[Rfam]
A member of the RNA family "Guanidine-I riboswitch aptamer" from Sulfobacillus acidophilus, 95 nucleotides long. It is one of the family's seed sequences.
RNA sequence: GUCUAAAGUUUGCUAGGGUUCCGCGUCAUAGGUGGUCUGGUCCAAGAGCAAACGGCUUUCACAAAGCCACACGGAAGGAUAAAAGCCUGGGAGAU
Numbered sequence: 001g002u003c004u005a006a007a008g009u010u011u012g013c014u015a016g017g018g019u020u021c022c023g024c025g026u027c028a029u030a031g032g033u034g035g036u037c038u039g040g041u042c043c044a045a046g047a048g049c050a051a052a053c054g055g056c057u058u059u060c061a062c063a064a065a066g067c068c069a070c071a072c073g074g075a076a077g078g079a080u081a082a083a084a085g086c087c088u089g090g091g092a093g094a095u
Stems, first nucleotide, its partner, number of pairs: 008053006016043002021040002023037001024034004054068006070090001072093001076088003
The organism belongs to Sulfobacillus, within Bacteria. The literature on the family includes a 2004 paper in Proc Natl Acad Sci U S A by Barrick et al., "New RNA motifs suggest an expanded scope for riboswitches in bacterial genetic control".